M-box riboswitch aptamer (ykoK leader): a 163-nucleotide RNA from Thermoanaerobacterium thermosaccharolyticum. The literature on the family includes a 2004 paper in Proc Natl Acad Sci U S A by Barrick et al., "New RNA motifs suggest an expanded scope for riboswitches in bacterial genetic control". The organism belongs to Thermoanaerobacterium thermosaccharolyticum, within Bacteria.

RNA sequence: AAUAAAGUUCGUUAAGUGAGGCUCCUAUGCGGAUACAUGCUGAUGCCCGGAAACAUCGAGAGAUGCCAAUGGGUCAACAGAUUCUACCGUAACAAGGUUUAAUCUAAUUCAGCUGGUGAAACCUAUGCCGUAUAGUGCUAAAACCCAACGAGUGAGUUGAGAA
Numbered sequence: 001a002a003u004a005a006a007g008u009u010c011g012u013u014a015a016g017u018g019a020g021g022c023u024c025c026u027a028u029g030c031g032g033a034u035a036c037a038u039g040c041u042g043a044u045g046c047c048c049g050g051a052a053a054c055a056u057c058g059a060g061a062g063a064u065g066c067c068a069a070u071g072g073g074u075c076a077a078c079a080g081a082u083u084c085u086a087c088c089g090u091a092a093c094a095a096g097g098u099u100u101a102a103u104c105u106a107a108u109u110c111a112g113c114u115g116g117u118g119a120a121a122c123c124u125a126u127g128c129c130g131u132a133u134a135g136u137g138c139u140a141a142a143a144c145c146c147a148a149c150g151a152g153u154g155a156g157u158u159g160a161g162a163a
Stems, first nucleotide, its partner, number of pairs: 006158005011149002013095001016144002020139003025135008039113005045074005054065004080104004086098003115123003
Dot-bracket structure: .....((((((([..((..(((..((((((((......(((((.(((((....((((....))))....))))).....((((..(((......])))..))))....))))).(((...)))....)))))))).)))...))...))....))))).....